[Rfam]
RNA: ALIL pseudoknot
RNA sequence: CGCAUAUUUUGCGAUGGCGGAGCUCGACCGCCGGUCGAAGUGAUGGUGGACUUCGUUGAGGCGCACAGGGAUGCGCACGGGGUCGAGCCGACCUGCGCGGUACUGCCGAUUGCUCCU
Numbered sequence: 001c002g003c004a005u006a007u008u009u010u011g012c013g014a015u016g017g018c019g020g021a022g023c024u025c026g027a028c029c030g031c032c033g034g035u036c037g038a039a040g041u042g043a044u045g046g047u048g049g050a051c052u053u054c055g056u057u058g059a060g061g062c063g064c065a066c067a068g069g070g071a072u073g074c075g076c077a078c079g080g081g082g083u084c085g086a087g088c089c090g091a092c093c094u095g096c097g098c099g100g101u102a103c104u105g106c107c108g109a110u111u112g113c114u115c116c117u
Stems, first nucleotide, its partner, number of pairs: 016032005079116004089112002093108001095106003